About this RNA:
A member of the RNA family "Guanidine-II riboswitch aptamer (mini-ykkC)" from Nitrobacter winogradskyi, 52 nucleotides long.
RNA sequence: GCGGAAGGACGACCUUUCGUAUCCCACACAACCACGCGCGGGGACGGCCCUG
Numbered sequence: 001g002c003g004g005a006a007g008g009a010c011g012a013c014c015u016u017u018c019g020u021a022u023c024c025c026a027c028a029c030a031a032c033c034a035c036g037c038g039c040g041g042g043g044a045c046g047g048c049c050c051u052g
Stems, first nucleotide, its partner, number of pairs: 001020008039052005
The source organism's lineage runs through Bacteria, Pseudomonadati, Hyphomicrobiales, Nitrobacteraceae and Nitrobacter winogradskyi. A reference for the family is Weinberg et al. (2007), "Identification of 22 candidate structured RNAs in bacteria using the CMfinder comparative genomics pipeline", Nucleic Acids Res.